This 141-nucleotide RNA sequence from Trichechus manatus belongs to the Rfam family "Small Cajal body specific RNA 11". The literature on the family includes a 2002 paper in EMBO J by Darzacq et al., "Cajal body-specific small nuclear RNAs: a novel class of 2'-O-methylation and pseudouridylation guide RNAs". Its family is annotated with nucleolus, Cajal body and RNA processing in the Gene Ontology. By type it is a small Cajal body RNA. Lineage of the source: Eukaryota > Deuterostomia > Gnathostomata > Amniota > Trichechus manatus. The family's consensus secondary structure was predicted with RNAalifold. Rfam's curators write: scaRNAs are a specific class of small nuclear RNAs which localise to the Cajal bodies and guide the modification of RNA polymerase II transcribed spliceosomal RNAs U1, U2, U4, U5 and U12. ACA57 belongs to the H/ACA box class of guide RNAs as it has the predicted hairpin-hinge-hairpin-tail structure, conserved H/ACA-box motifs and is found associated with GAR1.
[Rfam]
RNA sequence: UCGUCCUGGCCUGUGCAUUCUUACUCCCCUGUUCUCAGCUCUAAUGGGGGGGUCUGUGGCAGGACAUACAGCAGUCUCCCUCUCAGUUUAGGAGGGCUGUCCUAAGAAUAGGGCUGGCUCUUAAAGGCACGAGAGGACAAU
Numbered sequence: 001u002c003g004u005c006c007u008g009g010c011c012u013g014u015g016c017a018u019u020c021u022u023a024c025u026c027c028c029c030u031g032u033u034c035u036c037a038g039c040u041c042u043a044a045u046g047g048g049g050g051g052g053u054c055u056g057u058g059g060c061a062g063g064a065c066a067u068a069c070a071g072c073a074g075u076c077u078c079c080c081u082c083u084c085a086g087u088u089u090a091g092g093a094g095g096g097c098u099g100u101c102c103u104a105a106g107a108a109u110a111g112g113g114c115u116g117g118c119u120c121u122u123a124a125a126g127g128c129a130c131g132a133g134a135g136g137a138c139a140a141u
Base pairs, nucleotide, nucleotide: 003065004064005063006062007061008060010059011058023053024052025051027049028048029047030046031045032044079136080135081134082133083132084131086128087127088126089125092122093121094120095119096118097117098116099114100113101112102111103110104109